[Rfam]
RNA sequence: UGCAUAUCUCGUUAGGUGAGGCUCCUGUGCAGGAGAUACGCUGCUGCCCAAAAACGUCCAAAGACGCCAAUGGGUCAACAGGAACUAUCGACAUAAGGUAGUUUUUAAUGUAGCUGGAUAAAUGAAUCCUAUGCCGCACAGUGCUAAAGCUCUACGAAUAGAGACACGUG
Numbered sequence: 001u002g003c004a005u006a007u008c009u010c011g012u013u014a015g016g017u018g019a020g021g022c023u024c025c026u027g028u029g030c031a032g033g034a035g036a037u038a039c040g041c042u043g044c045u046g047c048c049c050a051a052a053a054a055c056g057u058c059c060a061a062a063g064a065c066g067c068c069a070a071u072g073g074g075u076c077a078a079c080a081g082g083a084a085c086u087a088u089c090g091a092c093a094u095a096a097g098g099u100a101g102u103u104u105u106u107a108a109u110g111u112a113g114c115u116g117g118a119u120a121a122a123u124g125a126a127u128c129c130u131a132u133g134c135c136g137c138a139c140a141g142u143g144c145u146a147a148a149g150c151u152c153u154a155c156g157a158a159u160a161g162a163g164a165c166a167c168g169u170g
Stems, first nucleotide, its partner, number of pairs: 005166001007164004011155002013096001015151003020145003025141006032135002040114005046075005055066004081105004087099003116129003
M-box riboswitch aptamer (ykoK leader): a 170-nucleotide sequence from Alkalicoccus daliensis. A search with the family's covariance model found it, with a score of 139 bits. For this family Rfam cites "New RNA motifs suggest an expanded scope for riboswitches in bacterial genetic control" (Barrick et al., Proc Natl Acad Sci U S A, 2004).